Shown here is a 281-nucleotide RNA sequence from Litorilinea aerophila, a member of the family "glmS glucosamine-6-phosphate activated ribozyme aptamer".
Lineage of the source: Bacteria > Chloroflexota > Caldilineales > Caldilineaceae > Litorilinea.
Rfam classes the family as a riboswitch.
Its family is annotated with regulation of gene expression and catalytic activity in the Gene Ontology.
From the family's description: This entry contains a glucosamine-6-phosphate activated ribozyme that is found in the mRNA for GlmS. GlmS is an enzyme that uses fructose-6-phosphate and glutamine to generate glucosamine-6-phosphate.
[Rfam]
RNA sequence: CACGGGAAGAGAGCGCAUGGCCCGUCCCACGGCCGUUUUGGCCCGGGACGGGUGACGAGGAGGGGGUUCCCGGCUCCACGCCGGGCUAACCGCAGACGCCGGCCCAUGGCCACUGGCGUCUGCGGGAAAAUCGAACCAUCAGCGGAUGCCCCUGGGUCGCUUCCACCGGCCCAACCAGGAACCACCCCGGUUCUGGUCACAAUCUUCCCCACCAUACAUGGUCAAGCGAGCGUUGAAAACCGGCGGGUAACCGCCGGCACAAAGGCGCUCUGCAGUGGAAU
Numbered sequence: 001c002a003c004g005g006g007a008a009g010a011g012a013g014c015g016c017a018u019g020g021c022c023c024g025u026c027c028c029a030c031g032g033c034c035g036u037u038u039u040g041g042c043c044c045g046g047g048a049c050g051g052g053u054g055a056c057g058a059g060g061a062g063g064g065g066g067u068u069c070c071c072g073g074c075u076c077c078a079c080g081c082c083g084g085g086c087u088a089a090c091c092g093c094a095g096a097c098g099c100c101g102g103c104c105c106a107u108g109g110c111c112a113c114u115g116g117c118g119u120c121u122g123c124g125g126g127a128a129a130a131u132c133g134a135a136c137c138a139u140c141a142g143c144g145g146a147u148g149c150c151c152c153u154g155g156g157u158c159g160c161u162u163c164c165a166c167c168g169g170c171c172c173a174a175c176c177a178g179g180a181a182c183c184a185c186c187c188c189g190g191u192u193c194u195g196g197u198c199a200c201a202a203u204c205u206u207c208c209c210c211a212c213c214a215u216a217c218a219u220g221g222u223c224a225a226g227c228g229a230g231c232g233u234u235g236a237a238a239a240c241c242g243g244c245g246g247g248u249a250a251c252c253g254c255c256g257g258c259a260c261a262a263a264g265g266c267g268c269u270c271u272g273c274a275g276u277g278g279a280a281u
Stems, first nucleotide, its partner, number of pairs: 020053009062153005070142001228270006240257007